[Rfam]
RNA sequence: ACUAAAUAUUAAGCGCCAGAGCUCAAUAUUUUGAGUUGACGAGGACAUGGUUUAUCGAAAAUUCGGCGGAUGCCAUGCGGUGCAGCUACCAUCGUUAGUAGUCCUACAAAUACCACAAGUGAUUGUGGAGACAAAAGGAUUAAGUAGAUAUAA
Numbered sequence: 001a002c003u004a005a006a007u008a009u010u011a012a013g014c015g016c017c018a019g020a021g022c023u024c025a026a027u028a029u030u031u032u033g034a035g036u037u038g039a040c041g042a043g044g045a046c047a048u049g050g051u052u053u054a055u056c057g058a059a060a061a062u063u064c065g066g067c068g069g070a071u072g073c074c075a076u077g078c079g080g081u082g083c084a085g086c087u088a089c090c091a092u093c094g095u096u097a098g099u100a101g102u103c104c105u106a107c108a109a110a111u112a113c114c115a116c117a118a119g120u121g122a123u124u125g126u127g128g129a130g131a132c133a134a135a136a137g138g139a140u141u142a143a144g145u146a147g148a149u150a151u152a153a
Stems, first nucleotide, its partner, number of pairs: 020037007046077005055066004078094005099142006113128006
glmS glucosamine-6-phosphate activated ribozyme aptamer: a 153-nucleotide RNA from Proteiniborus ethanoligenes. The match comes from Rfam's covariance-model search (110 bits). Pairs were carried over by alignment from the consensus structure, which is taken from published work. NCBI's taxonomy places the organism under Bacteria, Bacillati, Bacillota, Eubacteriales, Proteiniborus.